[Rfam]
RNA sequence: UCUGUGGAUCGUUACAUCAAAUGAGAGUAGUUGGUAGCAGAGAGAUCAACGUUACAACCAAAUCAGACGGGAUGAAGCAGAAA
Number, nucleotide and partner (000 for none) at each position: 001u081002c080003u079004g078005u077006g000007g000008a000009u070010c069011g068012u067013u066014a000015c000016a000017u000018c000019a000020a000021a000022u065023g064024a063025g000026a000027g000028u000029a000030g058031u057032u056033g000034g055035u054036a053037g052038c051039a000040g000041a000042g000043a000044g000045a000046u000047c000048a000049a000050c000051g038052u037053u036054a035055c034056a032057a031058c030059c000060a000061a000062a000063u024064c023065a022066g013067a012068c011069g010070g009071g000072a000073u000074g000075a000076a000077g005078c004079a003080g002081a001082a000083a000

Shown here is an 83-nucleotide RNA sequence, a member of the family "RAGATH-18 RNA". Actinobacteria, Firmicutes, Fusobacteria, Thermotogae (1 example). It is one of the family's seed sequences.